[Rfam]
RNA: L31-Actinobacteria ribosomal protein leader
RNA sequence: GCGGUACCGGUUCACGUCCUGCGGGACGACCCGGCGACU
Numbered sequence: 001g002c003g004g005u006a007c008c009g010g011u012u013c014a015c016g017u018c019c020u021g022c023g024g025g026a027c028g029a030c031c032c033g034g035c036g037a038c039u
Base pairs, nucleotide, nucleotide: 003039004038005037007034008033009032010031015028016027017026018025019024